[Rfam]
RNA sequence: GGUGCUCAGGGUCAUCCCCCCUGGCCUUGAGCACCGACGGCCCCGGCACCCCCCCGCCGGGGCCGUCCCCU
Numbered sequence: 001g002g003u004g005c006u007c008a009g010g011g012u013c014a015u016c017c018c019c020c021c022u023g024g025c026c027u028u029g030a031g032c033a034c035c036g037a038c039g040g041c042c043c044c045g046g047c048a049c050c051c052c053c054c055c056g057c058c059g060g061g062g063c064c065g066u067c068c069c070c071u
Stems, first nucleotide, its partner, number of pairs: 002034012036067012